[Rfam]
RNA sequence: CCACACCCUGCGGGAGAGUCCGAUCACGAGCGCGCCGAGCUGGCGACCGCGAGACCGGACACCGAAGGAGCAACCUCCCCGUCAAUCUCUCAGGUCGUACGACCGCAGGGGUCAG
Number, nucleotide and partner (000 for none) at each position: 001c000002c000003a000004c000005a000006c110007c109008c108009u107010g106011c105012g104013g103014g000015a000016g000017a000018g000019u059020c058021c057022g056023a000024u000025c000026a000027c000028g000029a000030g000031c000032g000033c000034g000035c000036c000037g000038a000039g000040c000041u000042g000043g000044c000045g000046a000047c000048c000049g000050c000051g000052a000053g000054a000055c000056c022057g021058g020059a019060c000061a095062c094063c093064g091065a090066a000067g000068g089069a088070g087071c000072a000073a000074c000075c081076u000077c000078c000079c000080c000081g075082u000083c000084a000085a000086u000087c070088u069089c068090u065091c064092a000093g063094g062095u061096c000097g000098u000099a000100c000101g000102a000103c013104c012105g011106c010107a009108g008109g007110g006111g000112u000113c000114a000115g000
A member of the RNA family "Glycine riboswitch aptamer" from Curtobacterium sp. MCBD17_040, 115 nucleotides long.
The pairing is the family consensus, mapped onto this sequence.
The source organism's lineage runs through Bacteria, Actinomycetota, Micrococcales, Microbacteriaceae and Curtobacterium.
A search with the family's covariance model found it, with a score of 58 bits.
Rfam links the family to the GO term glycine biosynthetic process.
This family represents the bacterial glycine riboswitch.